[Rfam]
RNA sequence: AUGUACUACAAGUACAUUCCGCUUUUUGCGCUGCUCUUCACCCCGCUGACGCUCGCUCGCUACAGAUUGUCAACA
Number, nucleotide and partner (000 for none) at each position: 001a000002u016003g015004u014005a013006c012007u000008a000009c000010a000011a000012g006013u005014a004015c003016a002017u000018u000019c000020c000021g034022c033023u000024u000025u030026u000027u000028g000029c000030g025031c000032u000033g022034c021035u000036c000037u000038u000039c000040a000041c000042c000043c000044c000045g000046c000047u072048g071049a070050c069051g068052c000053u000054c000055g000056c000057u000058c000059g000060c000061u000062a000063c000064a000065g000066a000067u000068u051069g050070u049071c048072a047073a000074c000075a000
Xanthomonas sRNA sX9: a 75-nucleotide RNA from Undibacterium sp. KW1. Lineage of the source: Bacteria > Pseudomonadati > Pseudomonadota > Betaproteobacteria > Undibacterium. Rfam classes the family as a small RNA. A reference for the family is Schmidtke et al. (2011), "Genome-wide transcriptome analysis of the plant pathogen Xanthomonas identifies sRNAs with putative virulence functions", Nucleic Acids Res. The base pairs follow the family's consensus structure, which was predicted with RNAalifold. Rfam 15.1 lists 309 matches to the family in 52 species.